[Rfam]
Notes: Rfam assigns this 312-nucleotide RNA sequence from Spirosoma taeanense to the family "Group I catalytic intron". The family's consensus secondary structure is taken from published work. On this family, see Cech, Annu Rev Biochem 1990: "Self-splicing of group I introns".
RNA sequence: GUUAUCCUUUCACAAUGUGCAACGAAUAGUCGCUGGUGCCUCCCGUGAGAAAUCACAGGAUGAGCAGGGGGUUAAUUCAGGGAAACCUUAACGGCAGUUUUUCAGAACUGUGCUGCUGGCAAUCCUGAGCCAAAUUAGGUGAAUGGUUUUUGAACGGUCCGCCGUUCUGGUAGCCUAAACGGUGCAGAGACUAAGAAGUGAGGAGACCGACCAAUACGCUUCUACAAACGCCCCCCGCCCUAACGAUUAAUCGGUACUGAACCGGUUAGACGAGGGUGAUGAGAUAGUCCAACUACUUUGGGAAACCAAAGG
Numbered sequence: 001g002u003u004a005u006c007c008u009u010u011c012a013c014a015a016u017g018u019g020c021a022a023c024g025a026a027u028a029g030u031c032g033c034u035g036g037u038g039c040c041u042c043c044c045g046u047g048a049g050a051a052a053u054c055a056c057a058g059g060a061u062g063a064g065c066a067g068g069g070g071g072u073u074a075a076u077u078c079a080g081g082g083a084a085a086c087c088u089u090a091a092c093g094g095c096a097g098u099u100u101u102u103c104a105g106a107a108c109u110g111u112g113c114u115g116c117u118g119g120c121a122a123u124c125c126u127g128a129g130c131c132a133a134a135u136u137a138g139g140u141g142a143a144u145g146g147u148u149u150u151u152g153a154a155c156g157g158u159c160c161g162c163c164g165u166u167c168u169g170g171u172a173g174c175c176u177a178a179a180c181g182g183u184g185c186a187g188a189g190a191c192u193a194a195g196a197a198g199u200g201a202g203g204a205g206a207c208c209g210a211c212c213a214a215u216a217c218g219c220u221u222c223u224a225c226a227a228a229c230g231c232c233c234c235c236c237g238c239c240c241u242a243a244c245g246a247u248u249a250a251u252c253g254g255u256a257c258u259g260a261a262c263c264g265g266u267u268a269g270a271c272g273a274g275g276g277u278g279a280u281g282a283g284a285u286a287g288u289c290c291a292a293c294u295a296c297u298u299u300g301g302g303a304a305a306c307c308a309a310a311g312g
Stems, first nucleotide, its partner, number of pairs: 005025002008022002011019003031045001067235004072230001077128006086119002129183002135177001142171001144169003187290001189289005238276004297310005